[Rfam]
Nucleotides: 116
Base pairs, nucleotide, nucleotide: 003077004076005075006074008067009066010065011064012063013062014061016059017058018057027053028052029051030050031049032048033047034046097115098114099113100112102110
Number, partner (000 for none) and nucleotide at each position: 001000a002000g003077c004076u005075g006074u007000g008067u009066g010065g011064u012063g013062g014061g015000c016059a017058c018057a019000a020000a021000g022000c023000g024000a025000a026000c027053u028052a029051u030050u031049c032048u033047u034046u035000c036000g037000c038000c039000u040000u041000u042000u043000a044000c045000u046034a047033a048032a049031g050030a051029a052028u053027a054000c055000c056000g057018u058017g059016u060000c061014c062013c063012u064011g065010u066009u067008a068000c069000u070000c071000c072000a073000a074006g075005c076004a077003g078000c079000a080000u081000a082000c083000g084000c085000c086000a087000a088000u089000u090000u091000u092000u093000u094000g095000a096000g097115g098114g099113c100112c101000c102110a103000u104000c105000c106000u107000a108000a109000a110102u111000a112100g113099g114098c115097u116000a